[Rfam]
RNA sequence: AUUGCAAAUUCAAGGCCACAGCAGAAGCACUCAGGGGGUGGCCCUGUCAGAUUCCAAUGAAUGUAUGAAUUCUGCU
Numbered sequence: 001a002u003u004g005c006a007a008a009u010u011c012a013a014g015g016c017c018a019c020a021g022c023a024g025a026a027g028c029a030c031u032c033a034g035g036g037g038g039u040g041g042c043c044c045u046g047u048c049a050g051a052u053u054c055c056a057a058u059g060a061a062u063g064u065a066u067g068a069a070u071u072c073u074g075c076u
Stems, first nucleotide, its partner, number of pairs: 014043004020076007027039002049064001051062004

A member of the RNA family "Mammalian CPEB3 ribozyme" from Alligator mississippiensis, 76 nucleotides long. Rfam links the family to the GO term RNA nuclease activity. Lineage of the source: Eukaryota > Craniata > Dipnotetrapodomorpha > Alligatorinae > Alligator. The family has 14 seed sequences and 5,706 matches in Rfam 15.1.